[Rfam]
RNA sequence: CACAGCGCUCUGCCUCAGCCCGCUCACACACCCCUCCGUGUGCUGCAUUAACCCACGUAAGAAAAUCACUUUUAAUGAGGAGUGAUGCAGUUCUGAACUCUCUAGAGCCAUAAUUAGAGCAAACUAAUUGAAGUUGUGUUUUGACACACUCUCCAAAUUCACGGGUACUGCCUGACAUAUUCACAACACUGCUGCUGCACAGCCGUGGUGACAGCAAAAUCAUUAGGCUAAUAACGCUCAUUGGCAUUCCGAGCACGCCAGCAGUGCUCAGUCCUGCUCCAGCCAGGGCUCGCUCGCUCCCAAAGUUUCCACUCAAGGUGCUAGCAGCAACUACUGCGAGUUGAGUGGAGUCUCGAAGGCUAAGGA
Numbered sequence: 001c002a003c004a005g006c007g008c009u010c011u012g013c014c015u016c017a018g019c020c021c022g023c024u025c026a027c028a029c030a031c032c033c034c035u036c037c038g039u040g041u042g043c044u045g046c047a048u049u050a051a052c053c054c055a056c057g058u059a060a061g062a063a064a065a066u067c068a069c070u071u072u073u074a075a076u077g078a079g080g081a082g083u084g085a086u087g088c089a090g091u092u093c094u095g096a097a098c099u100c101u102c103u104a105g106a107g108c109c110a111u112a113a114u115u116a117g118a119g120c121a122a123a124c125u126a127a128u129u130g131a132a133g134u135u136g137u138g139u140u141u142u143g144a145c146a147c148a149c150u151c152u153c154c155a156a157a158u159u160c161a162c163g164g165g166u167a168c169u170g171c172c173u174g175a176c177a178u179a180u181u182c183a184c185a186a187c188a189c190u191g192c193u194g195c196u197g198c199a200c201a202g203c204c205g206u207g208g209u210g211a212c213a214g215c216a217a218a219a220u221c222a223u224u225a226g227g228c229u230a231a232u233a234a235c236g237c238u239c240a241u242u243g244g245c246a247u248u249c250c251g252a253g254c255a256c257g258c259c260a261g262c263a264g265u266g267c268u269c270a271g272u273c274c275u276g277c278u279c280c281a282g283c284c285a286g287g288g289c290u291c292g293c294u295c296g297c298u299c300c301c302a303a304a305g306u307u308u309c310c311a312c313u314c315a316a317g318g319u320g321c322u323a324g325c326a327g328c329a330a331c332u333a334c335u336g337c338g339a340g341u342u343g344a345g346u347g348g349a350g351u352c353u354c355g356a357a358g359g360c361u362a363a364g365g366a
Base pairs, nucleotide, nucleotide: 046359048357049356053348054347055346056345059342060341067082069080070079071078072077087334089332090331091330092329094327098107099106100105117291118290119289120288130152132150133149135148136147137146138145139144163269164268165267167265168264193210194209195208196207197206214258215257227245228244230242231241232240
RNA: ncRNA Repressor of NFAT (nuclear factor of activated T cells)
Organism: Rhinopomastus cyanomelas